A member of the RNA family "mir-253 microRNA precursor family" from Caenorhabditis remanei, 94 nucleotides long.
RNA sequence: GUUCGAGUUUCCACCCUUUUCACACACCUCACUAACACUAAACACAGAUUGAUAGAUGUUAGUAGGCGUUGUGGGAAGGGCGGCGAUGACGAGC
Numbered sequence: 001g002u003u004c005g006a007g008u009u010u011c012c013a014c015c016c017u018u019u020u021c022a023c024a025c026a027c028c029u030c031a032c033u034a035a036c037a038c039u040a041a042a043c044a045c046a047g048a049u050u051g052a053u054a055g056a057u058g059u060u061a062g063u064a065g066g067c068g069u070u071g072u073g074g075g076a077a078g079g080g081c082g083g084c085g086a087u088g089a090c091g092a093g094c
Stems, first nucleotide, its partner, number of pairs: 001094005007087003011083002014080011025068001027066003031063007038055003
Gene Ontology terms of the family: RISC complex and miRNA-mediated post-transcriptional gene silencing.
NCBI's taxonomy places the organism under Eukaryota, Ecdysozoa, Rhabditida, Rhabditomorpha, Caenorhabditis.
For this family Rfam cites "Comprehensive discovery of endogenous Argonaute binding sites in Caenorhabditis elegans" (Zisoulis et al., Nat Struct Mol Biol, 2010).